[Rfam]
RNA sequence: GAGGCAGCGACAGAGAGAGCUGGCCAGACUGUGAGGGAUGGAGCGAAUUUAGCUUGUGCCUUGUGUGGCUCACUCGUGCAGCUCCCUCACAGUCUGCAUGGCUCUCCGUGUCUCUUCCUC
Numbered sequence: 001g002a003g004g005c006a007g008c009g010a011c012a013g014a015g016a017g018a019g020c021u022g023g024c025c026a027g028a029c030u031g032u033g034a035g036g037g038a039u040g041g042a043g044c045g046a047a048u049u050u051a052g053c054u055u056g057u058g059c060c061u062u063g064u065g066u067g068g069c070u071c072a073c074u075c076g077u078g079c080a081g082c083u084c085c086c087u088c089a090c091a092g093u094c095u096g097c098a099u100g101g102c103u104c105u106c107c108g109u110g111u112c113u114c115u116u117c118c119u120c
Stems, first nucleotide, its partner, number of pairs: 001120004006115002009112004015106008025096013